[Rfam]
RNA sequence: GCGUCCGCUGCUGGAUGCGCUUGAUGGUGGCGCCCUUGGGCCCCACCACCAGCCCCACCACGCGGUAGGGCAC
Numbered sequence: 001g002c003g004u005c006c007g008c009u010g011c012u013g014g015a016u017g018c019g020c021u022u023g024a025u026g027g028u029g030g031c032g033c034c035c036u037u038g039g040g041c042c043c044c045a046c047c048a049c050c051a052g053c054c055c056c057a058c059c060a061c062g063c064g065g066u067a068g069g070g071c072a073c
Base pairs, nucleotide, nucleotide: 004069005068007066008065009064010063011062012060013059014058017055019053020052021051023049025048026047027046028045030043032041033040034039